Rfam assigns this 67-nucleotide RNA sequence to the family "Xanthine riboswitch aptamer (NMT1 RNA)".
A reference for the family is Yu and Breaker (2020), "A bacterial riboswitch class senses xanthine and uric acid to regulate genes associated with purine oxidation", RNA.

[Rfam]
RNA sequence: UUGCAGAGUAGAAGCGGCUAGUGUCUGGUGUCUUCGUUUUCAACCAGCAUGGGGCAUUGCUCUUGGG
Numbered sequence: 001u002u003g004c005a006g007a008g009u010a011g012a013a014g015c016g017g018c019u020a021g022u023g024u025c026u027g028g029u030g031u032c033u034u035c036g037u038u039u040u041c042a043a044c045c046a047g048c049a050u051g052g053g054g055c056a057u058u059g060c061u062c063u064u065g066g067g
Stems, first nucleotide, its partner, number of pairs: 005063006015052001018054002021050003025047005